[Rfam]
RNA sequence: AGCAAAAUGAUGAGGAACUAUUAGCUGAAAUUUUAUGUUGAAGAAACAUAUCAUAUGCCUUCAAAGUUCUCUGAUUGAU
Dot-bracket structure: (.(((.....................................................................))).)

Description: The family of this 79-nucleotide sequence from Nicotiana attenuata is "Small nucleolar RNA R160". NCBI's taxonomy places the organism under Eukaryota, Mesangiospermae, lamiids, Nicotianoideae, Nicotiana. The base pairs follow the family's consensus structure. snoR160 is a C/D box small nucleolar RNA, which acts as a methylation guide for 25S ribosomal RNA in plants. snoR160 has been alternatively named snoZ270 in rice. On this family, see Chen et al., Nucleic Acids Res 2003: "The high diversity of snoRNAs in plants: identification and comparative study of 120 snoRNA genes from Oryza sativa".